[Rfam]
RNA sequence: CAGUGGUUUUACCCUAUGGUAGGUUACGUCAUGCUGUUCUACCACAGGGUAGAACCACGGA
Numbered sequence: 001c002a003g004u005g006g007u008u009u010u011a012c013c014c015u016a017u018g019g020u021a022g023g024u025u026a027c028g029u030c031a032u033g034c035u036g037u038u039c040u041a042c043c044a045c046a047g048g049g050u051a052g053a054a055c056c057a058c059g060g061a
Stems, first nucleotide, its partner, number of pairs: 001059001003058013017044007026037003
Dot-bracket structure: (.(((((((((((((.(((((((..(((......)))))))))).))))))))))))))..
Shown here is a 61-nucleotide RNA sequence from Salmo salar, a member of the family "mir-140 microRNA precursor family". Its family is annotated with RISC complex and miRNA-mediated post-transcriptional gene silencing in the Gene Ontology. Rfam 15.1 lists 648 matches to the family in 615 species. The family's consensus secondary structure was predicted with RNAalifold. A reference for the family is Cai et al. (2005), "Kaposi's sarcoma-associated herpesvirus expresses an array of viral microRNAs in latently infected cells", Proc Natl Acad Sci U S A.